[Rfam]
RNA sequence: GGCCUCCUGGUGCUUACUACAGGCUGUAUUCUUGCACUGACUGUAAAGAAAGAGGCAGAGAAGACCCUCCCUAUGUACACCUCAGCUCAGGCCUCGUAUAUGGGCUGUAUUGUGAAUGGGGGGGAUAAGG
Numbered sequence: 001g002g003c004c005u006c007c008u009g010g011u012g013c014u015u016a017c018u019a020c021a022g023g024c025u026g027u028a029u030u031c032u033u034g035c036a037c038u039g040a041c042u043g044u045a046a047a048g049a050a051a052g053a054g055g056c057a058g059a060g061a062a063g064a065c066c067c068u069c070c071c072u073a074u075g076u077a078c079a080c081c082u083c084a085g086c087u088c089a090g091g092c093c094u095c096g097u098a099u100a101u102g103g104g105c106u107g108u109a110u111u112g113u114g115a116a117u118g119g120g121g122g123g124g125a126u127a128a129g130g
Stems, first nucleotide, its partner, number of pairs: 002056005008050001020043003026037002029034001069122004073117002083107003087103003091099001

Shown here is a 130-nucleotide RNA sequence from Oryctolagus cuniculus, a member of the family "Small nucleolar RNA SNORA51". It scores 99 bits against the family's covariance model. The family has 9 seed sequences and 2,121 matches in Rfam 15.1. The family's RNA type in Rfam is H/ACA-box small nucleolar RNA. From the family's description: ACA51 is a member of the H/ACA class of snoRNA that guide the sites of modification of uridines to pseudouridines. NCBI's taxonomy places the organism under Eukaryota, Deuterostomia, Sarcopterygii, Mammalia, Oryctolagus.